[Rfam]
RNA sequence: UUGUGACACUCUGUGUCAGAUGAUUGAAGUUGUCUGAUGCAAUUUGAGCUUGCUAUAGCAAGAAAGUCUAACCUAUUCCAGUGUUCCCCUCCAUGAGACCAACUGUUAUACAGACUUAAACAUU
Numbered sequence: 001u002u003g004u005g006a007c008a009c010u011c012u013g014u015g016u017c018a019g020a021u022g023a024u025u026g027a028a029g030u031u032g033u034c035u036g037a038u039g040c041a042a043u044u045u046g047a048g049c050u051u052g053c054u055a056u057a058g059c060a061a062g063a064a065a066g067u068c069u070a071a072c073c074u075a076u077u078c079c080a081g082u083g084u085u086c087c088c089c090u091c092c093a094u095g096a097g098a099c100c101a102a103c104u105g106u107u108a109u110a111c112a113g114a115c116u117u118a119a120a121c122a123u124u
Stems, first nucleotide, its partner, number of pairs: 009048003012041004017036006064117006074110003079105004085098002088095001
A member of the RNA family "Small nucleolar RNA SNORA28" from Felis catus, 124 nucleotides long. The family has 26 seed sequences and 922 matches in Rfam 15.1. A reference for the family is Huttenhofer et al. (2001), "RNomics: an experimental approach that identifies 201 candidates for novel, small, non-messenger RNAs in mouse", EMBO J. The family's RNA type in Rfam is H/ACA-box small nucleolar RNA. Its family is annotated with RNA processing and nucleolus in the Gene Ontology.